[Rfam]
RNA sequence: GAUUUGUUAGUUUAAAUCAAACCUGUUAUGAUUUAAGCUAACAAACCACCAUAAACCACAUUGUUUGCUGAGAUUGACUCCGAGCAGUGUGGUUUUUUU
Numbered sequence: 001g002a003u004u005u006g007u008u009a010g011u012u013u014a015a016a017u018c019a020a021a022c023c024u025g026u027u028a029u030g031a032u033u034u035a036a037g038c039u040a041a042c043a044a045a046c047c048a049c050c051a052u053a054a055a056c057c058a059c060a061u062u063g064u065u066u067g068c069u070g071a072g073a074u075u076g077a078c079u080c081c082g083a084g085c086a087g088u089g090u091g092g093u094u095u096u097u098u099u
Stems, first nucleotide, its partner, number of pairs: 003045017054094014070080003

Record summary: The family of this 99-nucleotide RNA sequence from Streptococcus agalactiae is "23S methyl RNA motif". The family's consensus secondary structure is taken from published work. Rfam's curators put it in the seed alignment. The literature on the family includes a 2007 paper in Nucleic Acids Res by Weinberg et al., "Identification of 22 candidate structured RNAs in bacteria using the CMfinder comparative genomics pipeline".